[Rfam]
RNA: U2 spliceosomal RNA
Organism: Myotis lucifugus
RNA sequence: AAAACAGGCCUUUUGGCUAAGAUCAAGAGUAGUAUGUUCUUAUCAGUUUACUAUCUGAUACGUCCUCUAUCUGAGGACCUUAUAGUAAACGUAUUUUUGGAGCAGGAGAUGGAAUAGGAGCUUGCUCCGUCCACUCCACGCAUUGACCUGGUAUUGCAGUACCUCCGGGAAUGGUGCAAAAACA
Numbered sequence: 001a002a003a004a005c006a007g008g009c010c011u012u013u014u015g016g017c018u019a020a021g022a023u024c025a026a027g028a029g030u031a032g033u034a035u036g037u038u039c040u041u042a043u044c045a046g047u048u049u050a051c052u053a054u055c056u057g058a059u060a061c062g063u064c065c066u067c068u069a070u071c072u073g074a075g076g077a078c079c080u081u082a083u084a085g086u087a088a089a090c091g092u093a094u095u096u097u098u099g100g101a102g103c104a105g106g107a108g109a110u111g112g113a114a115u116a117g118g119a120g121c122u123u124g125c126u127c128c129g130u131c132c133a134c135u136c137c138a139c140g141c142a143u144u145g146a147c148c149u150g151g152u153a154u155u156g157c158a159g160u161a162c163c164u165c166c167g168g169g170a171a172u173g174g175u176g177c178a179a180a181a182a183c184a
Base pairs, nucleotide, nucleotide: 007018008017009016010015041060042059043058044057045056046055062078063077064076065075066074067073105137106136107135108134111131112130117128118127119126120125140177141176142175143174144173145172147169148168149167150166151165